[Rfam]
RNA sequence: AAAAUUAUAUAACUCCGAGUAUUUUGUUCCUAAGGAUGUAUAGAAUAUAUAUCUAUGGAGAAAAUACCGAUAGGGUCAGUAGGGAAACAUUCUGACCUCCCGGAUUGGAAAGGAGUGAUGAUUUUGUUUGA
Numbered sequence: 001a002a003a004a005u006u007a008u009a010u011a012a013c014u015c016c017g018a019g020u021a022u023u024u025u026g027u028u029c030c031u032a033a034g035g036a037u038g039u040a041u042a043g044a045a046u047a048u049a050u051a052u053c054u055a056u057g058g059a060g061a062a063a064a065u066a067c068c069g070a071u072a073g074g075g076u077c078a079g080u081a082g083g084g085a086a087a088c089a090u091u092c093u094g095a096c097c098u099c100c101c102g103g104a105u106u107g108g109a110a111a112g113g114a115g116u117g118a119u120g121a122u123u124u125u126g127u128u129u130g131a
Base pairs, nucleotide, nucleotide: 003125004124012116013115014114015113016112019067020066021065022064023063024062025061027060028059029058030057034054035053036052037051038050039049040048041047073098074097075096076095077094078093079092081090083088099108100107
Dot-bracket structure: ..((.......(((((..(((((((.((((...((((((((.....))))))))..))))))))))).....(((((((.(.(....).).)))))))((......))...))))).......))......
Shown here is a 131-nucleotide RNA sequence from Halanaerobium sp. DL-01, a member of the family "Molybdenum/Tungsten riboswitch aptamer (Moco RNA motif)". Rfam links the family to the GO terms tungstate binding, molybdenum ion binding and regulation of gene expression. The match comes from Rfam's covariance-model search (72 bits).